[Rfam]
RNA sequence: GUCGAGAGCAUCGCGCCCGGGGCCCACGCUUGUCGGUUCGGGGGAAAUCUCGAUCAACUGACCGGGCGCAGGGCACGAGAUCCGGUGUGCGGCCCCGCUGAGUUACGGUGGUGCUGACACCGAGGCGUUAUCGGGCGCGCACGCCGGGCUCUUGGCACCCA
Numbered sequence: 001g002u003c004g005a006g007a008g009c010a011u012c013g014c015g016c017c018c019g020g021g022g023c024c025c026a027c028g029c030u031u032g033u034c035g036g037u038u039c040g041g042g043g044g045a046a047a048u049c050u051c052g053a054u055c056a057a058c059u060g061a062c063c064g065g066g067c068g069c070a071g072g073g074c075a076c077g078a079g080a081u082c083c084g085g086u087g088u089g090c091g092g093c094c095c096c097g098c099u100g101a102g103u104u105a106c107g108g109u110g111g112u113g114c115u116g117a118c119a120c121c122g123a124g125g126c127g128u129u130a131u132c133g134g135g136c137g138c139g140c141a142c143g144c145c146g147g148g149c150u151c152u153u154g155g156c157a158c159c160c161a
Stems, first nucleotide, its partner, number of pairs: 001156008009079001011078003015069002022063001025060002036054002040051004082147010092136004107121004

The record is a 161-nucleotide sequence from Cognatiluteimonas weifangensis, which matches "Xanthomonadaceae sRNA sX15" in Rfam.
By type it is a small RNA.
The base pairs follow the family's consensus structure, which was predicted with CMfinder.
On this family, see Schmidtke et al., Nucleic Acids Res 2011: "Genome-wide transcriptome analysis of the plant pathogen Xanthomonas identifies sRNAs with putative virulence functions".
Rfam 15.1 lists 32 matches to the family in 24 species.